Nucleotides: 089
Stems, first nucleotide, its partner, number of pairs: 006084008019031004033070003036066001040064001042062001047057002
Number, partner (000 for none) and nucleotide at each position: 001000u002000g003000a004000c005000a006084u007083g008082u009081u010080u011079c012078g013077g014000g015000a016000g017000a018000g019031c020030c021029g022028c023000c024000g025000c026000c027000g028022g029021c030020g031019g032000c033070g034069c035068c036066g037000u038000a039000g040064g041000u042062g043000c044000a045000a046000u047057u048056c049000c050000c051000u052000c053000c054000c055000c056048g057047g058000g059000a060000a061000a062042c063000u064040c065000u066036c067000a068035g069034g070033c071000c072000c073000a074000g075000u076000a077013c078012c079011g080010g081009a082008g083007c084006a085000u086000g087000c088000a089000g
A member of the RNA family "Glycine riboswitch aptamer" from Brevibacterium luteolum, 89 nucleotides long. The base pairs follow the family's consensus structure. The match comes from Rfam's covariance-model search (52 bits). NCBI's taxonomy places the organism under Bacteria, Bacillati, Actinomycetota, Micrococcales, Brevibacterium.